[Rfam]
RNA sequence: UAGUGUGAUUGUCUCCGACCCGGGCCGCCUAAAGGCUUGCGCCCAAGGCGGACGGGCGGUGGGCACCGGCCAAGGGGCCGGUGGACCCCAAGGGCCGUCCUGGAAACGGGGCGACCUCCCGGCUUUGGAAAGGAGGCAACGUGACCGCUCA
Numbered sequence: 001u002a003g004u005g006u007g008a009u010u011g012u013c014u015c016c017g018a019c020c021c022g023g024g025c026c027g028c029c030u031a032a033a034g035g036c037u038u039g040c041g042c043c044c045a046a047g048g049c050g051g052a053c054g055g056g057c058g059g060u061g062g063g064c065a066c067c068g069g070c071c072a073a074g075g076g077g078c079c080g081g082u083g084g085a086c087c088c089c090a091a092g093g094g095c096c097g098u099c100c101u102g103g104a105a106a107c108g109g110g111g112c113g114a115c116c117u118c119c120c121g122g123c124u125u126u127g128g129a130a131a132g133g134a135g136g137c138a139a140c141g142u143g144a145c146c147g148c149u150c151a
Base pairs, nucleotide, nucleotide: 003145004144011137012136013135014134015133016132019056020055021054022053025051026050027049028048029047034043035042036041058089059088061086092117093116094115096113097112098111099110100109101108102107118128119127
RNA: Molybdenum/Tungsten riboswitch aptamer (Moco RNA motif)